[Rfam]
RNA sequence: UGUGCAUCGUAGUCAAAUGCUCAGACUCCUGUGGUGGCUGCUCAUGCACCACGGAUGUUUGAGCAUGUGCUA
Numbered sequence: 001u002g003u004g005c006a007u008c009g010u011a012g013u014c015a016a017a018u019g020c021u022c023a024g025a026c027u028c029c030u031g032u033g034g035u036g037g038c039u040g041c042u043c044a045u046g047c048a049c050c051a052c053g054g055a056u057g058u059u060u061g062a063g064c065a066u067g068u069g070c071u072a
Stems, first nucleotide, its partner, number of pairs: 010072003014069002017066010027055003034052004039048003
This 72-nucleotide RNA from Eschrichtius robustus belongs to the Rfam family "mir-105 microRNA precursor family". It scores 91 bits against the family's covariance model. The literature on the family includes a 2010 paper in Mol Hum Reprod by Ahn et al., "MicroRNA transcriptome in the newborn mouse ovaries determined by massive parallel sequencing".